This 133-nucleotide sequence from Microcebus murinus belongs to the Rfam family "Small nucleolar RNA SNORA31".
The literature on the family includes a 2001 paper in EMBO J by Huttenhofer et al., "RNomics: an experimental approach that identifies 201 candidates for novel, small, non-messenger RNAs in mouse".
The source organism's lineage runs through Eukaryota, Bilateria, Deuterostomia, Mammalia and Microcebus.
Gene Ontology terms of the family: nucleolus and RNA processing.
By type it is an H/ACA-box small nucleolar RNA.

RNA sequence: UUGCAUUUUUUGACAGACCUGGAGCAGUUAUUGUCUGCUACUAAGGUUUUCACUACAGAUGUAAGAAAAAAGUCUCCUCCUGCUUCCUGUCUGUCUGAUCAAGGCAGUCAAGAUGGACUAGAGGAAUACAGCA
Numbered sequence: 001u002u003g004c005a006u007u008u009u010u011u012g013a014c015a016g017a018c019c020u021g022g023a024g025c026a027g028u029u030a031u032u033g034u035c036u037g038c039u040a041c042u043a044a045g046g047u048u049u050u051c052a053c054u055a056c057a058g059a060u061g062u063a064a065g066a067a068a069a070a071a072g073u074c075u076c077c078u079c080c081u082g083c084u085u086c087c088u089g090u091c092u093g094u095c096u097g098a099u100c101a102a103g104g105c106a107g108u109c110a111a112g113a114u115g116g117a118c119u120a121g122a123g124g125a126a127u128a129c130a131g132c133a
Base pairs, nucleotide, nucleotide: 002063003062004061005060006059007058008057011052012051015049016048017047018046019045023039024038025037026036027035075125076124077123078122079121083116087112088111091107092106093105094104095103
Rfam's curators write: ACA31 (SNORA31) belongs to the H/ACA class of snoRNAs which are thought to guide the sites of modification of uridines to pseudouridines. A search with the family's covariance model found it, with a score of 63 bits.